A member of the RNA family "Makes More Granules Regulator RNA (mmgR)" from Azospirillum sp. TSH58, 77 nucleotides long. Rfam's curators write: SuhB later renamed mmgR (makes more granules regulator) was a putative non-coding RNA found multiple times in the Agrobacterium tumefaciens genome and related alpha-proteobacteria. Rfam 15.1 lists 1,791 matches to the family in 918 species.
RNA sequence: CACUGACGCCUUUUCGGGCGUUUCCUCCCUAGACUCGGGCCGCCGGAGCAAUCCUGGCGGCCUUUUUCUUUGCAUGC
Numbered sequence: 001c002a003c004u005g006a007c008g009c010c011u012u013u014u015c016g017g018g019c020g021u022u023u024c025c026u027c028c029c030u031a032g033a034c035u036c037g038g039g040c041c042g043c044c045g046g047a048g049c050a051a052u053c054c055u056g057g058c059g060g061c062c063u064u065u066u067u068c069u070u071u072g073c074a075u076g077c
Stems, first nucleotide, its partner, number of pairs: 008019004038062009